[Rfam]
RNA sequence: GACGCGAAAGCGCCGUAGGCAGGAGCGGGGGACCCAGGUAGGCGCUGGGCCCGGUCGUCGGGAGACGAACGGGGCCGGCUAGGGGUGAAGUCGCGCCAGGGGCGCGGCCGGGCAACUCACUUGGCCCGAACCCGACAGCUCACCUCGCAGGCGUCGGUGAGGAGAAGA
Dot-bracket structure: ..........((((..........((((((....(..............................................)(((.....((((.........))))..((((..........))))...))).........)))))).))))...............
This 168-nucleotide sequence belongs to the Rfam family "c-di-AMP riboswitch aptamer (ydaO/yuaA leader)".
The match comes from Rfam's covariance-model search (59 bits).
For this family Rfam cites "New RNA motifs suggest an expanded scope for riboswitches in bacterial genetic control" (Barrick et al., Proc Natl Acad Sci U S A, 2004).
The pairing is the family consensus, mapped onto this sequence.
Rfam's curators write: This family represents a conserved RNA structure found upstream of the ydaO and yuaA genes in Bacillus subtilis and related genes in other bacteria. The ydaO/yuaA element is thought to act as a genetic 'off' switch for the ydaO and yuaA genes in its native state. It is believed that the element may be triggered during osmotic shock leading to activation of ydaO, a predicted amino acid transporter gene, and members of the yuaA-yubG operon which code for KtrA and KtrB K+ transporters.